Rfam assigns this 100-nucleotide RNA sequence from Microcebus murinus to the family "Vault RNA". Taxonomically the source falls in Microcebus (Eukaryota, Bilateria, Sarcopterygii, Amniota).
RNA sequence: GGGCUGGCUUUAGCUCAGCAGUUCCUUCACUACAGUUUCAACAAUCUCUUUGAAGAGCCACAGCGGUUUGAGACCCGGGGGCGUGCUCUCCAGCCCUUUU
Numbered sequence: 001g002g003g004c005u006g007g008c009u010u011u012a013g014c015u016c017a018g019c020a021g022u023u024c025c026u027u028c029a030c031u032a033c034a035g036u037u038u039c040a041a042c043a044a045u046c047u048c049u050u051u052g053a054a055g056a057g058c059c060a061c062a063g064c065g066g067u068u069u070g071a072g073a074c075c076c077g078g079g080g081g082c083g084u085g086c087u088c089u090c091c092a093g094c095c096c097u098u099u100u
Stems, first nucleotide, its partner, number of pairs: 002095006013082004019077001021075001026072004